[Rfam]
RNA sequence: AGCCUUCUGUAUCCGUGCUGAUAUUUCAUCACACACCAGACCACAAGGGUUGAUGAGGCUUCCAAGAUAGGUGGAGCG
Numbered sequence: 001a002g003c004c005u006u007c008u009g010u011a012u013c014c015g016u017g018c019u020g021a022u023a024u025u026u027c028a029u030c031a032c033a034c035a036c037c038a039g040a041c042c043a044c045a046a047g048g049g050u051u052g053a054u055g056a057g058g059c060u061u062c063c064a065a066g067a068u069a070g071g072u073g074g075a076g077c078g
Stems, first nucleotide, its partner, number of pairs: 002077002005074002008071001010069004016064002020061002024058007
RNA: mir-3492 microRNA precursor family